RNA sequence: GGCCGGGUGUGCGGCUAAUACAAGACCCGCGAGGGGAAUACGCCCGCCGCUCUUCUGACGGUUGCUAGCACCCGGCCGCCCACGG
Number, nucleotide and partner (000 for none) at each position: 001g077002g076003c075004c074005g073006g072007g071008u070009g069010u000011g000012c000013g044014g043015c042016u040017a039018a000019u000020a000021c000022a000023a000024g000025a000026c035027c034028c033029g000030c000031g000032a000033g028034g027035g026036g000037a000038a000039u017040a016041c000042g015043c014044c013045c000046g062047c061048c060049g059050c000051u000052c000053u000054u000055c000056u000057g000058a000059c049060g048061g047062u046063u000064g000065c000066u000067a000068g000069c009070a008071c007072c006073c005074g004075g003076c002077c001078g000079c000080c000081c000082a000083c000084g000085g000